[Rfam]
Small nucleolar RNA SNORD87: an 82-nucleotide sequence from Thinocorus orbignyianus. The organism belongs to Thinocorus, within Eukaryota. Its family is annotated with nucleolus and RNA processing in the Gene Ontology.

RNA sequence: GCUGGCAUAAUGAUGAUAACUCUUUGCCGUUUACCCAUCUGAAGUCUUUUUUGAUGUGAAUCUUUAUAUCUGAAAUGCCAGU
Numbered sequence: 001g002c003u004g005g006c007a008u009a010a011u012g013a014u015g016a017u018a019a020c021u022c023u024u025u026g027c028c029g030u031u032u033a034c035c036c037a038u039c040u041g042a043a044g045u046c047u048u049u050u051u052u053g054a055u056g057u058g059a060a061u062c063u064u065u066a067u068a069u070c071u072g073a074a075a076u077g078c079c080a081g082u
Stems, first nucleotide, its partner, number of pairs: 001082007